[Rfam]
RNA: tRNA
Organism: Rhizobacter gummiphilus
RNA sequence: CCCCUCGUGGCGGAACUGGCAGACGCGCCUGGCUCAGAACCAGGAGUCGAGAGACGUGUCCGUUCGAAUCGGACCGAGGGGA
Numbered sequence: 001c002c003c004c005u006c007g008u009g010g011c012g013g014a015a016c017u018g019g020c021a022g023a024c025g026c027g028c029c030u031g032g033c034u035c036a037g038a039a040c041c042a043g044g045a046g047u048c049g050a051g052a053g054a055c056g057u058g059u060c061c062g063u064u065c066g067a068a069u070c071g072g073a074c075c076g077a078g079g080g081g082a
Stems, first nucleotide, its partner, number of pairs: 001081007010026003028044005058074005